A member of the RNA family "MIR4371 microRNA precursor family" from Glycine soja, 136 nucleotides long. It scores 119 bits against the family's covariance model.
RNA sequence: CCGUUAAGUGAUGACGCGACAAACGGAGUAUUACGUCAUCACGUUCAAUCACUGACAUGUCAUCACCUUCAAUGACGUGUCAAUGAUUGGACGUGAUGAUGUUACACUCCGUCUGUCACGUCAUUACUUAAUGAAA
Numbered sequence: 001c002c003g004u005u006a007a008g009u010g011a012u013g014a015c016g017c018g019a020c021a022a023a024c025g026g027a028g029u030a031u032u033a034c035g036u037c038a039u040c041a042c043g044u045u046c047a048a049u050c051a052c053u054g055a056c057a058u059g060u061c062a063u064c065a066c067c068u069u070c071a072a073u074g075a076c077g078u079g080u081c082a083a084u085g086a087u088u089g090g091a092c093g094u095g096a097u098g099a100u101g102u103u104a105c106a107c108u109c110c111g112u113c114u115g116u117c118a119c120g121u122c123a124u125u126a127c128u129u130a131a132u133g134a135a136a
Base pairs, nucleotide, nucleotide: 002133003132004131005130006129007128008127009126010125011124012123013122014121015120016119018117019116020115021114023112024111025110026109027108028107029106031104033102034101035100036099037098038097039096040095041094042093043092044091045090046089048087049086050085051084054081055080056079057078058077059076060075061074062073063072
Notes:
Taxonomically the source falls in Glycine subgen. Soja (Eukaryota, Streptophyta, Mesangiospermae, fabids).